[Rfam]
RNA sequence: AUAUGUACCAUGAUAGGAAGUAGUAAGCUUUCCCAUUGAUUUUAGAGAGCUGUUGGCCGGUGAAAAACAGUAUCAAUGGACGCCGAACUCGUCCUAGAGUUGUUAAGGUGAAAUAUAGUAACUUUAACCGGUAAAGGCCGUUAUCGUAUUAAGAGGAUAGUAUACUAUCAAUUAGGGUGGUACCGCGGAAAUAUACCUUUCGUCUCUAUU
Numbered sequence: 001a002u003a004u005g006u007a008c009c010a011u012g013a014u015a016g017g018a019a020g021u022a023g024u025a026a027g028c029u030u031u032c033c034c035a036u037u038g039a040u041u042u043u044a045g046a047g048a049g050c051u052g053u054u055g056g057c058c059g060g061u062g063a064a065a066a067a068c069a070g071u072a073u074c075a076a077u078g079g080a081c082g083c084c085g086a087a088c089u090c091g092u093c094c095u096a097g098a099g100u101u102g103u104u105a106a107g108g109u110g111a112a113a114u115a116u117a118g119u120a121a122c123u124u125u126a127a128c129c130g131g132u133a134a135a136g137g138c139c140g141u142u143a144u145c146g147u148a149u150u151a152a153g154a155g156g157a158u159a160g161u162a163u164a165c166u167a168u169c170a171a172u173u174a175g176g177g178u179g180g181u182a183c184c185g186c187g188g189a190a191a192u193a194u195a196c197c198u199u200u201c202g203u204c205u206c207u208a209u210u
Stems, first nucleotide, its partner, number of pairs: 007100002015095004027083002030080002038074003049071006103127007129140003156169005174207004185203005

A member of the RNA family "T-box leader" from Schnuerera ultunensis, 210 nucleotides long. Uncharged tRNA acts as the effector for transcription antitermination of genes in the T-box leader family. Rfam classes the family as a cis-regulatory leader. The base pairs follow the family's consensus structure, which is taken from published work. NCBI's taxonomy places the organism under Bacteria, Bacillati, Tepidimicrobiaceae, Schnuerera, Schnuerera ultunensis.